The record is a 131-nucleotide sequence from Jaculus jaculus, which matches "Small nucleolar RNA SNORA72" in Rfam. A search with the family's covariance model found it, with a score of 119 bits. Rfam's curators write: U72 is a member of the H/ACA class of snoRNAs. The snoRNA gene is located in intron 4 of the ribosomal L30 protein gene in human, mouse and chicken. Rfam classes the family as an H/ACA-box small nucleolar RNA. The literature on the family includes a 1997 paper in Genes Dev by Ganot et al., "The family of box ACA small nucleolar RNAs is defined by an evolutionarily conserved secondary structure and ubiquitous sequence elements essential for RNA accumulation". The family's consensus secondary structure was predicted with PFOLD. Lineage of the source: Eukaryota > Amniota > Theria > Glires > Jaculus.
[Rfam]
RNA sequence: CUGUGACUAUCCUUGCUGUUCUGAUUUGUAAUUAUCUGGACAAGCUAAACGUUCACUGCAUUCAGACCACGCAGGUGUCCCCAGACCUAGUUCUUUCCCCAGGUCUGGUUUUAGCAAUGCUGGUGAUAAAC
Numbered sequence: 001c002u003g004u005g006a007c008u009a010u011c012c013u014u015g016c017u018g019u020u021c022u023g024a025u026u027u028g029u030a031a032u033u034a035u036c037u038g039g040a041c042a043a044g045c046u047a048a049a050c051g052u053u054c055a056c057u058g059c060a061u062u063c064a065g066a067c068c069a070c071g072c073a074g075g076u077g078u079c080c081c082c083a084g085a086c087c088u089a090g091u092u093c094u095u096u097c098c099c100c101a102g103g104u105c106u107g108g109u110u111u112u113a114g115c116a117a118u119g120c121u122g123g124u125g126a127u128a129a130a131c
Stems, first nucleotide, its partner, number of pairs: 003056003017042005023036003066124004071120002081108008090099001